[Rfam]
Overview:
Shown here is a 233-nucleotide sequence from Thermoanaerobacter sp. X514, a member of the family "Group II catalytic intron D1-D4-6". A reference for the family is Bonen and Vogel (2001), "The ins and outs of group II introns", Trends Genet.

RNA sequence: AAACACCGAGCCCGGUAAAGUGAGGCCAACAGCCGGUACCAAGCCUUGGAGCCGAAGCCGCGAGGUUAGGUUUAAGCGUAGGCAUGGGAGUAAGCGAGCCGCAAUGCGAAAGCGUGAAGCGAUACAGCCCCGUUAGUUUAUGAAGUCGAAGCCGAUGCCGUCCUUUCGGCAGCAGGCAGCAAUCCGCAAACGAAAAGGCAAGAAUGCGGAGGUUCGGCCGGGGUCAGAGAGCG
Numbered sequence: 001a002a003a004c005a006c007c008g009a010g011c012c013c014g015g016u017a018a019a020g021u022g023a024g025g026c027c028a029a030c031a032g033c034c035g036g037u038a039c040c041a042a043g044c045c046u047u048g049g050a051g052c053c054g055a056a057g058c059c060g061c062g063a064g065g066u067u068a069g070g071u072u073u074a075a076g077c078g079u080a081g082g083c084a085u086g087g088g089a090g091u092a093a094g095c096g097a098g099c100c101g102c103a104a105u106g107c108g109a110a111a112g113c114g115u116g117a118a119g120c121g122a123u124a125c126a127g128c129c130c131c132g133u134u135a136g137u138u139u140a141u142g143a144a145g146u147c148g149a150a151g152c153c154g155a156u157g158c159c160g161u162c163c164u165u166u167c168g169g170c171a172g173c174a175g176g177c178a179g180c181a182a183u184c185c186g187c188a189a190a191c192g193a194a195a196a197g198g199c200a201a202g203a204a205u206g207c208g209g210a211g212g213u214u215c216g217g218c219c220g221g222g223g224u225c226a227g228a229g230a231g232c233g
Stems, first nucleotide, its partner, number of pairs: 012036004020030002025199002039087003043083004047078002049073005055067002058065002127224006145218006151177003156171004183210006191202001